[Rfam]
RNA sequence: UACAGAAAAAGGCAAACUUAUUGAAAAAUAAGGACGCAAAGUCACGGGUCUACGGUAGUUUAUCCUGCUAGGGCGGCCGGACUGCCUGA
Numbered sequence: 001u002a003c004a005g006a007a008a009a010a011g012g013c014a015a016a017c018u019u020a021u022u023g024a025a026a027a028a029u030a031a032g033g034a035c036g037c038a039a040a041g042u043c044a045c046g047g048g049u050c051u052a053c054g055g056u057a058g059u060u061u062a063u064c065c066u067g068c069u070a071g072g073g074c075g076g077c078c079g080g081a082c083u084g085c086c087u088g089a
Stems, first nucleotide, its partner, number of pairs: 012037002017032006040083004045079003048074003055068004